[Rfam]
RNA sequence: GUAUUCUAUUGUAGCGCUCCAAAGACAGCAGGUGGCUUGACCGCGGAAAUCCUGCCGAGGAUGCAUCCAUUAUGAUGUUUCUUUUUCUGUUUCCGGGGCUUUGGCCGCGGAAAUUUUUUUGGGCGUGU
Numbered sequence: 001g002u003a004u005u006c007u008a009u010u011g012u013a014g015c016g017c018u019c020c021a022a023a024g025a026c027a028g029c030a031g032g033u034g035g036c037u038u039g040a041c042c043g044c045g046g047a048a049a050u051c052c053u054g055c056c057g058a059g060g061a062u063g064c065a066u067c068c069a070u071u072a073u074g075a076u077g078u079u080u081c082u083u084u085u086u087c088u089g090u091u092u093c094c095g096g097g098g099c100u101u102u103g104g105c106c107g108c109g110g111a112a113a114u115u116u117u118u119u120u121g122g123g124c125g126u127g128u
Stems, first nucleotide, its partner, number of pairs: 028055005035044002090113006097106003
RNA: Ribosomal protein L10 leader